[Rfam]
RNA sequence: UUGUAAUUAUUUCUCCGAGCCUGUUAACCUUCUGCUCAGGUGGUUUACAGGACGUCAGGGUAUAACGGGAAACUGUUAUGCCUCCCAGUGUGGAAAGGAGAGGAUAUAAUUUAAGG
Number, nucleotide and partner (000 for none) at each position: 001u000002u000003g110004u109005a000006a107007u000008u000009a000010u000011u102012u101013c100014u099015c098016c097017g000018a000019g000020c051021c050022u049023g048024u047025u000026a045027a044028c043029c042030u000031u000032c000033u000034g000035c000036u000037c000038a000039g000040g000041u000042g029043g028044u027045u026046u000047a024048c023049a022050g021051g020052a000053c000054g000055u000056c000057a000058g083059g082060g081061u080062a079063u078064a077065a076066c075067g074068g073069g000070a000071a000072a000073c068074u067075g066076u065077u064078a063079u062080g061081c060082c059083u058084c093085c092086c000087a000088g000089u000090g000091u000092g085093g084094a000095a000096a000097g016098g015099a014100g013101a012102g011103g000104a000105u000106a000107u006108a000109a004110u003111u000112u000113a000114a000115g000116g000
Rfam assigns this 116-nucleotide RNA sequence from Desulfotruncus arcticus to the family "Molybdenum/Tungsten riboswitch aptamer (Moco RNA motif)". A reference for the family is Regulski et al. (2008), "in molybdenum cofactor and tungsten cofactor metabolism", Mol Microbiol. A search with the family's covariance model found it, with a score of 63 bits.